This 82-nucleotide sequence from Flavobacterium psychrophilum belongs to the Rfam family "Flavo-1 RNA". It is annotated as a small RNA.

RNA sequence: CCCUAGCCCAGAUUGCAGUGGAAAUCCUUUUUGUUUUUUUCUUUAAAAAACAAAAAGAUUGUAACGAAAAGCUGGAAAUAGC
Numbered sequence: 001c002c003c004u005a006g007c008c009c010a011g012a013u014u015g016c017a018g019u020g021g022a023a024a025u026c027c028u029u030u031u032u033g034u035u036u037u038u039u040u041c042u043u044u045a046a047a048a049a050a051c052a053a054a055a056a057g058a059u060u061g062u063a064a065c066g067a068a069a070a071g072c073u074g075g076a077a078a079u080a081g082c
Base pairs, nucleotide, nucleotide: 009074010073011072013070014069018065019064023060024059025058026057029055030054031053032052033051034049035048036047037046038045
Dot-bracket structure: ........(((.((...((...((((..((((((((((......))))).))))).))))...))...)).)))........